RNA sequence: UCGACGAAUACUUAGUCAAGAUCAUUGCUAUAGUAUUUGUGAUGUUUUAUUGUUAUAAAAUAACGGAUAUUACAAAAGUGAUGAUGAAAUGACGCUACUCACAAAUGAAUUUUAAUUUCGAUAUUUUUUCAUUAUCUUUUGAUAUUGUUAAAGUAUCCGAAAAAAAGAUGAUAACUUUAUAACAAUUUUAAGAUCUUCUUAUUUUUGUUAUUAAAUUUUUAGAGUAUGUCGUCCGCUGAACUUCC
Number, nucleotide and partner (000 for none) at each position: 001u042002c041003g040004a000005c039006g000007a036008a000009u035010a034011c033012u032013u000014a000015g000016u000017c000018a029019a000020g000021a026022u000023c000024a000025u000026u021027g000028c000029u018030a000031u000032a012033g011034u010035a009036u007037u000038u000039g005040u003041g002042a001043u000044g000045u000046u067047u000048u000049a000050u066051u065052g064053u063054u062055a000056u000057a000058a000059a000060a000061u000062a054063a053064c052065g051066g050067a046068u000069a000070u000071u000072a000073c000074a000075a000076a243077a242078g241079u240080g000081a000082u000083g000084a000085u000086g000087a000088a000089a000090u000091g232092a000093c000094g229095c228096u226097a225098c224099u223100c222101a000102c000103a000104a000105a000106u174107g000108a172109a000110u000111u000112u000113u000114a000115a000116u162117u161118u000119c000120g157121a156122u155123a154124u153125u152126u151127u150128u000129u000130c000131a000132u000133u000134a000135u000136c000137u000138u000139u000140u000141g000142a000143u000144a000145u000146u000147g000148u000149u000150a127151a126152a125153g124154u123155a122156u121157c120158c000159g000160a000161a117162a116163a000164a000165a000166a000167g000168a000169u000170g000171a000172u108173a000174a106175c000176u000177u214178u000179a212180u000181a000182a000183c000184a000185a000186u000187u000188u000189u000190a000191a000192g000193a000194u000195c000196u000197u000198c000199u000200u000201a000202u000203u000204u000205u000206u000207g000208u000209u000210a000211u000212u179213a000214a177215a000216u000217u000218u000219u000220u000221a000222g100223a099224g098225u097226a096227u000228g095229u094230c000231g000232u091233c000234c000235g000236c000237u000238g000239a000240a079241c078242u077243u076244c000245c000
RNA: ACEA small nucleolar RNA U3